[Rfam]
RNA sequence: GCGCAGAUCUCAGCGCCAUUUUCAGAGCUAUCAGUGUGAAAGGUGUCAUAGCUCUUUAAAUGGUACUGCUGUCUGUGG
Numbered sequence: 001g002c003g004c005a006g007a008u009c010u011c012a013g014c015g016c017c018a019u020u021u022u023c024a025g026a027g028c029u030a031u032c033a034g035u036g037u038g039a040a041a042g043g044u045g046u047c048a049u050a051g052c053u054c055u056u057u058a059a060a061u062g063g064u065a066c067u068g069c070u071g072u073c074u075g076u077g078g
Stems, first nucleotide, its partner, number of pairs: 002077003007072002011068003015064007024055008
A member of the RNA family "mir-458 microRNA precursor family" from Pleuronectes platessa, 78 nucleotides long. The literature on the family includes a 2008 paper in Genome Res by Glazov et al., "A microRNA catalog of the developing chicken embryo identified by a deep sequencing approach". Rfam links the family to the GO terms miRNA-mediated post-transcriptional gene silencing and RISC complex. Pairs were carried over by alignment from the consensus structure, which was predicted with RNAalifold.